[Rfam]
RNA sequence: CCUCCUGUGACGAUGAACCUGGAUGACUUUCGUUCUUCUGAGCUCGCUGAAGCCACGCAUUUCGGUCUGAGGAGG
Numbered sequence: 001c002c003u004c005c006u007g008u009g010a011c012g013a014u015g016a017a018c019c020u021g022g023a024u025g026a027c028u029u030u031c032g033u034u035c036u037u038c039u040g041a042g043c044u045c046g047c048u049g050a051a052g053c054c055a056c057g058c059a060u061u062u063c064g065g066u067c068u069g070a071g072g073a074g075g
Stems, first nucleotide, its partner, number of pairs: 001075003005071001
RNA: Small nucleolar RNA SNORD59
Organism: Anseranas semipalmata